[Rfam]
The family of this 53-nucleotide sequence from uncultured Faecalibacterium sp. is "RAGATH-5 RNA". For this family Rfam cites "New classes of self-cleaving ribozymes revealed by comparative genomics analysis" (Weinberg et al., Nat Chem Biol, 2015). Taxonomically the source falls in Faecalibacterium (Bacteria, Bacillota, Clostridia, Oscillospiraceae). Rfam classes the family as a ribozyme.

RNA sequence: CCGGAUGCCCUGGUAGGGCCGCACCGGACAAAGCGGCCCUACCCCACCGCCCA
Numbered sequence: 001c002c003g004g005a006u007g008c009c010c011u012g013g014u015a016g017g018g019c020c021g022c023a024c025c026g027g028a029c030a031a032a033g034c035g036g037c038c039c040u041a042c043c044c045c046a047c048c049g050c051c052c053a
Stems, first nucleotide, its partner, number of pairs: 001027004013042001015040004020035003